Overview
Glycine riboswitch aptamer: a 93-nucleotide sequence from Blastomonas sp. AAP25.
[Rfam]
RNA sequence: GAAAACGACACGGGAGAGCGCGGGGUGCAAGCCCCGCCACCGAAGGAGCAACCGCCCCGGAAUCUCUCAGGUCAUCGGGACCGUGUCGUUAGU
Numbered sequence: 001g002a003a004a005a006c007g008a009c010a011c012g013g014g015a016g017a018g019c020g021c022g023g024g025g026u027g028c029a030a031g032c033c034c035c036g037c038c039a040c041c042g043a044a045g046g047a048g049c050a051a052c053c054g055c056c057c058c059g060g061a062a063u064c065u066c067u068c069a070g071g072u073c074a075u076c077g078g079g080a081c082c083g084u085g086u087c088g089u090u091a092g093u
Base pairs, nucleotide, nucleotide: 006088007087008086009085010084011083012082013081020037021036022035023034039072040071041070042068043067046066047065048064052060053059
Pairs were carried over by alignment from the consensus structure. The source organism's lineage runs through Bacteria, Pseudomonadati, Alphaproteobacteria, Blastomonadaceae and Blastomonas.